The record is a 130-nucleotide sequence from Camelus bactrianus, which matches "Small nucleolar RNA SNORA43" in Rfam. Rfam's curators write: ACA43 is a member of the H/ACA class of snoRNA that guide the sites of modification of uridines to pseudouridines. Gene Ontology terms of the family: nucleolus and RNA processing. Its Rfam clan is "SNORA17 clan".
RNA sequence: GGUAUCCUGCUGGCACCACGGAUGCAGCUGCCCUGCUGCACCCGUGACGUCGGGGCACAGAGGAAGCGGCUAUUUCUACGCUCAGUGCUCAGAACAGUGGGCGCUAAGAAUGGUUUGUAGCCGGACAGUA
Numbered sequence: 001g002g003u004a005u006c007c008u009g010c011u012g013g014c015a016c017c018a019c020g021g022a023u024g025c026a027g028c029u030g031c032c033c034u035g036c037u038g039c040a041c042c043c044g045u046g047a048c049g050u051c052g053g054g055g056c057a058c059a060g061a062g063g064a065a066g067c068g069g070c071u072a073u074u075u076c077u078a079c080g081c082u083c084a085g086u087g088c089u090c091a092g093a094a095c096a097g098u099g100g101g102c103g104c105u106a107a108g109a110a111u112g113g114u115u116u117g118u119a120g121c122c123g124g125a126c127a128g129u130a
Stems, first nucleotide, its partner, number of pairs: 001051002018045004068122003076113003081108002086103006